[Rfam]
RNA sequence: GUUGGUUAUGGAGAUAUGUACCCUCUGACCAUUGGUGGCAAGAUAGUAGGAUCCUUAUGUGCCAUCGCUGGCGUCUUGACUAUUGCCCUCCCAGUCCCUGUGAUAGUGUCCAAU
Numbered sequence: 001g002u003u004g005g006u007u008a009u010g011g012a013g014a015u016a017u018g019u020a021c022c023c024u025c026u027g028a029c030c031a032u033u034g035g036u037g038g039c040a041a042g043a044u045a046g047u048a049g050g051a052u053c054c055u056u057a058u059g060u061g062c063c064a065u066c067g068c069u070g071g072c073g074u075c076u077u078g079a080c081u082a083u084u085g086c087c088c089u090c091c092c093a094g095u096c097c098c099u100g101u102g103a104u105a106g107u108g109u110c111c112a113a114u
Stems, first nucleotide, its partner, number of pairs: 001114002004111002007108003011104001014101003018097001020095002037077002040074001049063002
Source information
A member of the RNA family "Potassium channel RNA editing signal" from Hymenochirus boettgeri, 114 nucleotides long. It scores 102 bits against the family's covariance model. The organism belongs to Hymenochirus, within Eukaryota. The family's RNA type in Rfam is cis-regulatory element. About the family: This family represents a group of sequences related to the human potassium channel Kv1.1 hairpin element which directs the efficient modification of an adenosine to inosine by an adenosine deaminase acting on RNA (ADAR).